[Rfam]
RNA sequence: CGCAUGGGGUUGCGAUCACCCCACGAGGCGACAGCCGAAGUAUCGCGUCCAUUUUAACCGCUCACACGGAGGACGCGUCACAUG
Dot-bracket structure: ....((((((.......)))))).....................((((((....................))))))........
Numbered sequence: 001c002g003c004a005u006g007g008g009g010u011u012g013c014g015a016u017c018a019c020c021c022c023a024c025g026a027g028g029c030g031a032c033a034g035c036c037g038a039a040g041u042a043u044c045g046c047g048u049c050c051a052u053u054u055u056a057a058c059c060g061c062u063c064a065c066a067c068g069g070a071g072g073a074c075g076c077g078u079c080a081c082a083u084g
Stems, first nucleotide, its partner, number of pairs: 005023006045076006

A member of the RNA family "chrB-a RNA" from Sinorhizobium medicae, 84 nucleotides long. Pairs were carried over by alignment from the consensus structure, which is taken from published work. By type it is a cis-regulatory element. Lineage of the source: Bacteria > Pseudomonadati > Hyphomicrobiales > Rhizobiaceae > Sinorhizobium medicae. Rfam's curators put it in the seed alignment.